RNA sequence: GGGAGUAGAUAGGUACUGGUGUAUCUACUGGUCUUCAAAACCAGCUUCUCGUCCUUUACGGCGAGAGGUGGGUUCGAUUCCCACAUACUCCC
Numbered sequence: 001g002g003g004a005g006u007a008g009a010u011a012g013g014u015a016c017u018g019g020u021g022u023a024u025c026u027a028c029u030g031g032u033c034u035u036c037a038a039a040a041c042c043a044g045c046u047u048c049u050c051g052u053c054c055u056u057u058a059c060g061g062c063g064a065g066a067g068g069u070g071g072g073u074u075c076g077a078u079u080c081c082c083a084c085a086u087a088c089u090c091c092c
Stems, first nucleotide, its partner, number of pairs: 001092007008084001011026006028044005047066005069083004
This 92-nucleotide RNA from Aceticella autotrophica belongs to the Rfam family "Selenocysteine transfer RNA". Pairs were carried over by alignment from the consensus structure, which is taken from published work. Its family is annotated with triplet codon-amino acid adaptor activity in the Gene Ontology.